RNA sequence: UUUGUCCUGAACCUGGCAUACAAUGUAGAUUUCUGUGUGCUUCAAUUCUACAGCUACAUUGUCUGCUGGGUUUCUGGCUAGCAAU
Numbered sequence: 001u002u003u004g005u006c007c008u009g010a011a012c013c014u015g016g017c018a019u020a021c022a023a024u025g026u027a028g029a030u031u032u033c034u035g036u037g038u039g040c041u042u043c044a045a046u047u048c049u050a051c052a053g054c055u056a057c058a059u060u061g062u063c064u065g066c067u068g069g070g071u072u073u074c075u076g077g078c079u080a081g082c083a084a085u
Stems, first nucleotide, its partner, number of pairs: 013069006020062009033053004
RNA: mir-221 microRNA precursor family
Organism: Perca flavescens